[Rfam]
RNA: mir-275 microRNA precursor family
Organism: Apis mellifera
RNA sequence: UUGUCGUGCGCAACGCGCGUUACUCGGGUACUUUAGGCUGUGCCAAUUUCGAAUCAGUCAGGUACCUGAAGUAGCGCGCGCUGCGGCGAAA
Number, nucleotide and partner (000 for none) at each position: 001u000002u000003g000004u000005c000006g000007u000008g000009c085010g084011c083012a082013a000014c080015g000016c078017g077018c076019g075020u074021u073022a072023c000024u000025c000026g000027g000028g000029u000030a063031c062032u000033u061034u000035a000036g059037g058038c057039u056040g000041u000042g000043c000044c000045a000046a000047u000048u000049u000050c000051g000052a000053a000054u000055c000056a039057g038058u037059c036060a000061g033062g031063u030064a000065c000066c000067u000068g000069a000070a000071g000072u022073a021074g020075c019076g018077c017078g016079c000080g014081c000082u012083g011084c010085g009086g000087c000088g000089a000090a000091a000